[Rfam]
RNA sequence: UGAGGCCGGUGAUGAUUUAAACAUUCUGUAUUGCCUACAUUGCUUGAUUAUCUGGCUCACCCAGAUAGUGAUAAAUGAAAAUAUAAUCUGAGGCCUCG
Number, nucleotide and partner (000 for none) at each position: 001u098002g097003a000004g095005g094006c093007c092008g000009g000010u000011g000012a000013u000014g000015a000016u000017u000018u000019a000020a000021a000022c000023a000024u000025u000026c000027u000028g000029u000030a000031u000032u000033g000034c000035c000036u000037a000038c000039a000040u000041u000042g000043c000044u000045u000046g000047a000048u000049u000050a000051u000052c000053u000054g000055g000056c000057u000058c000059a000060c000061c000062c000063a000064g000065a000066u000067a000068g000069u000070g000071a000072u000073a000074a000075a000076u000077g000078a000079a000080a000081a000082u000083a000084u000085a000086a000087u000088c000089u000090g000091a000092g007093g006094c005095c004096u000097c002098g001

About this RNA: A member of the RNA family "Small nucleolar RNA SNORD34" from Rosa chinensis, 98 nucleotides long. The family's consensus secondary structure was predicted with PFOLD. On this family, see Galardi et al., Mol Cell Biol 2002: "Purified box C/D snoRNPs are able to reproduce site-specific 2'-O-methylation of target RNA in vitro". Gene Ontology terms of the family: nucleolus and RNA processing. It is annotated as a C/D-box small nucleolar RNA.